[Rfam]
RNA: pemK RNA
RNA sequence: ACAAUGAUACUUCCCUAUGGGGCUGGCGGAGUACCCGGCAGAGGGGAGAUUUCGAGGA
Numbered sequence: 001a002c003a004a005u006g007a008u009a010c011u012u013c014c015c016u017a018u019g020g021g022g023c024u025g026g027c028g029g030a031g032u033a034c035c036c037g038g039c040a041g042a043g044g045g046g047a048g049a050u051u052u053c054g055a056g057g058a
Stems, first nucleotide, its partner, number of pairs: 012055001013022003023041003027037003043053002